About this RNA
The family of this 141-nucleotide sequence from Bursaphelenchus okinawaensis is "U4 spliceosomal RNA". It scores 109 bits against the family's covariance model. Rfam describes the family as follows. U4 small nuclear RNA (U4 snRNA) is a component of the major U2-dependent spliceosome. Gene Ontology terms of the family: U4 snRNP and spliceosomal tri-snRNP complex assembly.
RNA sequence: AGCUUUGCGCAGAGGCGAUAACGUGACCAAUGAGGCCUAGCCGAGGUGCGUUUAUUGCUGGUUGAAAACUUCUACCAAUUGCCCGCCGCGCUACCUGCUUCAAGCGGUAUGCGUAGGCAAUUUUUGGACGGCCAAUGGGCC
Numbered sequence: 001a002g003c004u005u006u007g008c009g010c011a012g013a014g015g016c017g018a019u020a021a022c023g024u025g026a027c028c029a030a031u032g033a034g035g036c037c038u039a040g041c042c043g044a045g046g047u048g049c050g051u052u053u054a055u056u057g058c059u060g061g062u063u064g065a066a067a068a069c070u071u072c073u074a075c076c077a078a079u080u081g082c083c084c085g086c087c088g089c090g091c092u093a094c095c096u097g098c099u100u101c102a103a104g105c106g107g108u109a110u111g112c113g114u115a116g117g118c119a120a121u122u123u124u125u126g127g128a129c130g131g132c133c134a135a136u137g138g139g140c141c
Base pairs, nucleotide, nucleotide: 020052021051022050023049024048026047027046028045034042035041036040085118086117087116088114089113090112091111095107096106097105098104099103130141131140132139133138